[Rfam]
RNA sequence: UGACACGCCCCUGGAGAGAUUCUAUUAAUUAGGACAUCGAAGGAGGAACUUACUUGAAUUUUUAGUGAGGAAACUUUCAGAUAAAAGGACAGGGUGUAGAAG
Numbered sequence: 001u002g003a004c005a006c007g008c009c010c011c012u013g014g015a016g017a018g019a020u021u022c023u024a025u026u027a028a029u030u031a032g033g034a035c036a037u038c039g040a041a042g043g044a045g046g047a048a049c050u051u052a053c054u055u056g057a058a059u060u061u062u063u064a065g066u067g068a069g070g071a072a073a074c075u076u077u078c079a080g081a082u083a084a085a086a087g088g089a090c091a092g093g094g095u096g097u098a099g100a101a102g
Stems, first nucleotide, its partner, number of pairs: 009094005020034004036082003039078002043076003049069006
A member of the RNA family "Glycine riboswitch aptamer" from Oceanirhabdus seepicola, 102 nucleotides long. A search with the family's covariance model found it, with a score of 55 bits. Rfam describes the family as follows. This family represents the bacterial glycine riboswitch.